[Rfam]
This 143-nucleotide sequence from Weissella cibaria belongs to the Rfam family "FMN riboswitch aptamer (RFN element)".

RNA sequence: AUAAAUCUUCGGGGCAGGGUGAAAUUCCCGACCGACGGUGAUGGCGUAUGCCUCAGUCCGUGACCCGGGUUGCGAUUAAGCAAUUCGGUUGAUGCAGUGUGAUUCUGCAACCGACAGUAAAGUCUGGAUGGGAGAAGAUAUCA
Numbered sequence: 001a002u003a004a005a006u007c008u009u010c011g012g013g014g015c016a017g018g019g020u021g022a023a024a025u026u027c028c029c030g031a032c033c034g035a036c037g038g039u040g041a042u043g044g045c046g047u048a049u050g051c052c053u054c055a056g057u058c059c060g061u062g063a064c065c066c067g068g069g070u071u072g073c074g075a076u077u078a079a080g081c082a083a084u085u086c087g088g089u090u091g092a093u094g095c096a097g098u099g100u101g102a103u104u105c106u107g108c109a110a111c112c113g114a115c116a117g118u119a120a121a122g123u124c125u126g127g128a129u130g131g132g133a134g135a136a137g138a139u140a141u142c143a
Stems, first nucleotide, its partner, number of pairs: 003141001005139006017029003031123002033113002035061004056111002065088004093109005115126003